[Rfam]
RNA sequence: AAACAUCCCCCUAUGUUUUGAUUCUUUGGCAGUUUUGGACCCCCAAGGCAAAAAAAAAAAAAAAAAAAAAAAUUGAUACGUGGCACCUCACUUAGGGUGCCACGUCAGCGUUGACCGAGUCAACAAUGGAUCGGGGGUCCAAAACUGUCAAAACAUAGAGGGUUGUUU
Numbered sequence: 001a002a003a004c005a006u007c008c009c010c011c012u013a014u015g016u017u018u019u020g021a022u023u024c025u026u027u028g029g030c031a032g033u034u035u036u037g038g039a040c041c042c043c044c045a046a047g048g049c050a051a052a053a054a055a056a057a058a059a060a061a062a063a064a065a066a067a068a069a070a071a072a073u074u075g076a077u078a079c080g081u082g083g084c085a086c087c088u089c090a091c092u093u094a095g096g097g098u099g100c101c102a103c104g105u106c107a108g109c110g111u112u113g114a115c116c117g118a119g120u121c122a123a124c125a126a127u128g129g130a131u132c133g134g135g136g137g138u139c140c141a142a143a144a145c146u147g148u149c150a151a152a153a154c155a156u157a158g159a160g161g162g163u164u165g166u167u168u
Stems, first nucleotide, its partner, number of pairs: 001168002004165002007162002012157007027150018078105002081102007